[Rfam]
RNA: tRNA
RNA sequence: GCGAAAGUGGCGGAAUUGGUAGACGUCCGGGAUUUAGGUUCCCGUGCCGCAAGGCGUGCGAGUUCGAGUCUCGCCUUUCGCA
Numbered sequence: 001g002c003g004a005a006a007g008u009g010g011c012g013g014a015a016u017u018g019g020u021a022g023a024c025g026u027c028c029g030g031g032a033u034u035u036a037g038g039u040u041c042c043c044g045u046g047c048c049g050c051a052a053g054g055c056g057u058g059c060g061a062g063u064u065c066g067a068g069u070c071u072c073g074c075c076u077u078u079c080g081c082a
Base pairs, nucleotide, nucleotide: 001081002080003079004078005077006076007075010026011025012024028044029043030042031041032040058074059073060072061071062070